The record is a 572-nucleotide RNA from Hepatovirus ahepa, which matches "Hepatitis A virus internal ribosome entry site (IRES)" in Rfam. Pairs were carried over by alignment from the consensus structure, which was predicted with PFOLD. Rfam's curators write: This family represents the internal ribosome entry site (IRES) of the the Hepatitis A virus. IRES elements allow cap and end-independent translation of mRNA in the host cell. The IRES achieves this by mediating the internal initiation of translation by recruiting a ribosomal 43S pre-initiation complex directly to the initiation codon and eliminates the requirement for eIF4F. Gene Ontology term of the family: ribosome binding.
RNA sequence: CAGGGUUCUUUAGUCUGUUUCUCUAUAAGAACACUCAAUUUUCACGCUUUCUGUCUUCUUUCUUCCAGGGCUCUCCCCUAGCCCUAGGCUCUGGCCGUUGCGCCCGGCGGGGUCAACUCCAUGAUUAGCAUGGAGCUGUAGGAGUCUAAAUUGGGGACGCAAAUGUUUGAGACGUCGCCUUGCAGUGUUAACUUGGCUCUCAUGAACCUCUCUGAUCUUCCACAAGGGGUAGGCUACGGGUGAAACCUCUUAGGCUAAUACUUCUAUGAAGAGAUGCUUUGGAUAGGGUAACAGCGGCGGAUAUUGGUGAGUUGUUAAGACAAAAACCAUUCAACGCCGGAGGACUGGCUCUCAUCCAGUGGAUGCAUUGAGUGGAUUGAUUGUCAGGGCUGUCUCUAGGUUUAAUCUCAGACCUCUCUGUGCUUAGGGCAAACACCAUUUGGCCUUAAAUGGGAUCCUGUGAGAGGGGGUCCCUCCAUUUACAGCUGGACUGUACUUUGGGGCCUUAUGUGGUGUUUGCCGCUGAGGUACUCAGGGGCAUUUAGGUUUUUCCUCAUUCUUAAACAAUAAUG
Numbered sequence: 001c002a003g004g005g006u007u008c009u010u011u012a013g014u015c016u017g018u019u020u021c022u023c024u025a026u027a028a029g030a031a032c033a034c035u036c037a038a039u040u041u042u043c044a045c046g047c048u049u050u051c052u053g054u055c056u057u058c059u060u061u062c063u064u065c066c067a068g069g070g071c072u073c074u075c076c077c078c079u080a081g082c083c084c085u086a087g088g089c090u091c092u093g094g095c096c097g098u099u100g101c102g103c104c105c106g107g108c109g110g111g112g113u114c115a116a117c118u119c120c121a122u123g124a125u126u127a128g129c130a131u132g133g134a135g136c137u138g139u140a141g142g143a144g145u146c147u148a149a150a151u152u153g154g155g156g157a158c159g160c161a162a163a164u165g166u167u168u169g170a171g172a173c174g175u176c177g178c179c180u181u182g183c184a185g186u187g188u189u190a191a192c193u194u195g196g197c198u199c200u201c202a203u204g205a206a207c208c209u210c211u212c213u214g215a216u217c218u219u220c221c222a223c224a225a226g227g228g229g230u231a232g233g234c235u236a237c238g239g240g241u242g243a244a245a246c247c248u249c250u251u252a253g254g255c256u257a258a259u260a261c262u263u264c265u266a267u268g269a270a271g272a273g274a275u276g277c278u279u280u281g282g283a284u285a286g287g288g289u290a291a292c293a294g295c296g297g298c299g300g301a302u303a304u305u306g307g308u309g310a311g312u313u314g315u316u317a318a319g320a321c322a323a324a325a326a327c328c329a330u331u332c333a334a335c336g337c338c339g340g341a342g343g344a345c346u347g348g349c350u351c352u353c354a355u356c357c358a359g360u361g362g363a364u365g366c367a368u369u370g371a372g373u374g375g376a377u378u379g380a381u382u383g384u385c386a387g388g389g390c391u392g393u394c395u396c397u398a399g400g401u402u403u404a405a406u407c408u409c410a411g412a413c414c415u416c417u418c419u420g421u422g423c424u425u426a427g428g429g430c431a432a433a434c435a436c437c438a439u440u441u442g443g444c445c446u447u448a449a450a451u452g453g454g455a456u457c458c459u460g461u462g463a464g465a466g467g468g469g470g471u472c473c474c475u476c477c478a479u480u481u482a483c484a485g486c487u488g489g490a491c492u493g494u495a496c497u498u499u500g501g502g503g504c505c506u507u508a509u510g511u512g513g514u515g516u517u518u519g520c521c522g523c524u525g526a527g528g529u530a531c532u533c534a535g536g537g538g539c540a541u542u543u544a545g546g547u548u549u550u551u552c553c554u555c556a557u558u559c560u561u562a563a564a565c566a567a568u569a570a571u572g
Base pairs, nucleotide, nucleotide: 019031020030021029022028085148086147087146088145089144090143091142092141095110096109097108098107099106100105117135118134119133120132121131122130123129158422159421160420161419163417165413166412167411168410169409170408171407172406225250226249227248228247229246230245252279253278254277255276261271262270263269264268295339296338297337298336299335353365354364355363356362357361423527424526425525426524428521429520430519431518432517433516434515435514436513437512438511439510442505443504444503445502446501447500448499449498450497452474453473454472455471456470457469458468459467481495482494483493484492485491